[Rfam]
RNA sequence: ACAGACUAUCUGGGAGAGACCGGUAAAACCGGCGCCGAUGGAGCAACCGCCCCGGAAACUCUCAGGCAAAAGGACCAGAAUAGUCUA
Numbered sequence: 001a002c003a004g005a006c007u008a009u010c011u012g013g014g015a016g017a018g019a020c021c022g023g024u025a026a027a028a029c030c031g032g033c034g035c036c037g038a039u040g041g042a043g044c045a046a047c048c049g050c051c052c053c054g055g056a057a058a059c060u061c062u063c064a065g066g067c068a069a070a071a072g073g074a075c076c077a078g079a080a081u082a083g084u085c086u087a
Stems, first nucleotide, its partner, number of pairs: 009079005020032004034067003037063002041061003047055002
Shown here is an 87-nucleotide sequence from Phyllobacterium myrsinacearum, a member of the family "Glycine riboswitch aptamer".
Taxonomically the source falls in Phyllobacterium (Bacteria, Pseudomonadota, Alphaproteobacteria, Phyllobacteriaceae).
A search with the family's covariance model found it, with a score of 65 bits.
This family represents the bacterial glycine riboswitch.